A member of the RNA family "Small nucleolar RNA SNORA77" from Odobenus rosmarus, 123 nucleotides long. Gene Ontology terms of the family: nucleolus and RNA processing. A reference for the family is Schattner et al. (2006), "A computational screen for mammalian pseudouridylation guide H/ACA RNAs", RNA. NCBI's taxonomy places the organism under Eukaryota, Eutheria, Pinnipedia, Odobenidae, Odobenus rosmarus.
RNA sequence: GAUUCUUUCUGCACCCAGCUGCAGGCCCAGAUGGGUGCUUUUUCUGUAUUCCAUAGAAAUGUCUCCCAGUGUUGUAACCACCUUAACCUGUCAAGGGCGAUGCAACCUUCUGGGGACACAGGG
Numbered sequence: 001g002a003u004u005c006u007u008u009c010u011g012c013a014c015c016c017a018g019c020u021g022c023a024g025g026c027c028c029a030g031a032u033g034g035g036u037g038c039u040u041u042u043u044c045u046g047u048a049u050u051c052c053a054u055a056g057a058a059a060u061g062u063c064u065c066c067c068a069g070u071g072u073u074g075u076a077a078c079c080a081c082c083u084u085a086a087c088c089u090g091u092c093a094a095g096g097g098c099g100a101u102g103c104a105a106c107c108u109u110c111u112g113g114g115g116a117c118a119c120a121g122g123g
Stems, first nucleotide, its partner, number of pairs: 002047002011038007019030003065114005071106006079099001081097003
Dot-bracket structure: .((.......(((((((.(((......))).))))))).......)).................(((((.((((((..(.(((...........))).).))))))...))))).........